[Rfam]
RNA sequence: AUAAUGAUACACCUGCACGUCAGUUGCAUGAGAUACCAUGCGAUGGUGAAAUUCCAGUGA
Dot-bracket structure: ...........((((.....)))(((.(((......))).)))(((.......))))...